[Rfam]
RNA sequence: UCCCACCUCUGAAGGCAGCAGCACAAAAGUAAGGGUGACAUGGUAUGAUAUUGCCACCCUUACUUCUGUGCUGCUGCUGGUUGGG
Numbered sequence: 001u002c003c004c005a006c007c008u009c010u011g012a013a014g015g016c017a018g019c020a021g022c023a024c025a026a027a028a029g030u031a032a033g034g035g036u037g038a039c040a041u042g043g044u045a046u047g048a049u050a051u052u053g054c055c056a057c058c059c060u061u062a063c064u065u066c067u068g069u070g071c072u073g074c075u076g077c078u079g080g081u082u083g084g085g
Base pairs, nucleotide, nucleotide: 001085002084003083005081006080007079017075018074019073020072021071022070023069024068026065028064029063030062031061032060033059034058035057